Small nucleolar RNA Z279/snoR105/snoR108: a 104-nucleotide sequence from Lathyrus oleraceus.
The base pairs follow the family's consensus structure, which was predicted with PFOLD.
Rfam links the family to the GO terms nucleolus and RNA processing.
By type it is a C/D-box small nucleolar RNA.
Taxonomically the source falls in Lathyrus (Eukaryota, Viridiplantae, Fabales, Papilionoideae).
The family is grouped with related families in Rfam's "snoU13 clan".

RNA sequence: GGGAUAUGAGGAGUGGUCGAGUCUCGCAUUUAAUAUGCGAGUUGGGUGUUCGCCCCAAGCCUGGUUACGACAAUUGGGCACUCUCAUCUAAUCAAUCUGAUCCC
Numbered sequence: 001g002g003g004a005u006a007u008g009a010g011g012a013g014u015g016g017u018c019g020a021g022u023c024u025c026g027c028a029u030u031u032a033a034u035a036u037g038c039g040a041g042u043u044g045g046g047u048g049u050u051c052g053c054c055c056c057a058a059g060c061c062u063g064g065u066u067a068c069g070a071c072a073a074u075u076g077g078g079c080a081c082u083c084u085c086a087u088c089u090a091a092u093c094a095a096u097c098u099g100a101u102c103c104c
Base pairs, nucleotide, nucleotide: 001104002103003102004101014095016093023041024040025039026038027037044083045082046081047080048079049078050077062076063075064074065073